[Rfam]
RNA sequence: GAGUUUGGUGGCUAGGGUUCCGGCGCAUAGGCGUGGCAGGUCCGAGAGCUGCCACUGGUCGGGGAGACAUCCCACCAGAUGCACGGCGGGACAAAAGCCCGGGAGAC
Numbered sequence: 001g002a003g004u005u006u007g008g009u010g011g012c013u014a015g016g017g018u019u020c021c022g023g024c025g026c027a028u029a030g031g032c033g034u035g036g037c038a039g040g041u042c043c044g045a046g047a048g049c050u051g052c053c054a055c056u057g058g059u060c061g062g063g064g065a066g067a068c069a070u071c072c073c074a075c076c077a078g079a080u081g082c083a084c085g086g087c088g089g090g091a092c093a094a095a096a097g098c099c100c101g102g103g104a105g106a107c
Base pairs, nucleotide, nucleotide: 007053008052009051010050011049012048015043016042020040021039022037023034024033025032026031054080055078056077057076058075059074061072062071063070082102084105088100089099090098

This 107-nucleotide RNA from Devosia sp. Root685 belongs to the Rfam family "Guanidine-I riboswitch aptamer". Lineage of the source: Bacteria > Pseudomonadati > Pseudomonadota > Hyphomicrobiales > Devosia. The match comes from Rfam's covariance-model search (74 bits).